[Rfam]
RNA sequence: GGGCCAGCUUAGCCUAGCGGUUCCUUCGCUUUCUCUGCAAGAAACCACUUCGAUGUUCGAUGUUCAGGUCCCGCGGGCGCUGCCUGGUCUUUUG
Numbered sequence: 001g002g003g004c005c006a007g008c009u010u011a012g013c014c015u016a017g018c019g020g021u022u023c024c025u026u027c028g029c030u031u032u033c034u035c036u037g038c039a040a041g042a043a044a045c046c047a048c049u050u051c052g053a054u055g056u057u058c059g060a061u062g063u064u065c066a067g068g069u070c071c072c073g074c075g076g077g078c079g080c081u082g083c084c085u086g087g088u089c090u091u092u093u094g
Stems, first nucleotide, its partner, number of pairs: 002089006012078004017074004025068002028065001
Rfam assigns this 94-nucleotide sequence from Anolis carolinensis to the family "Vault RNA". From the family's description: This family of RNAs are found as part of the enigmatic vault ribonucleoprotein complex. The complex consists of a major vault protein (MVP), two minor vault proteins (VPARP and TEP1), and several small untranslated RNA molecules. It has been suggested that the vault complex is involved in drug resistance. NCBI's taxonomy places the organism under Eukaryota, Vertebrata, Sauria, Toxicofera, Anolis. The family's consensus secondary structure is taken from published work. Rfam's curators put it in the seed alignment. The family's RNA type in Rfam is non-coding RNA gene.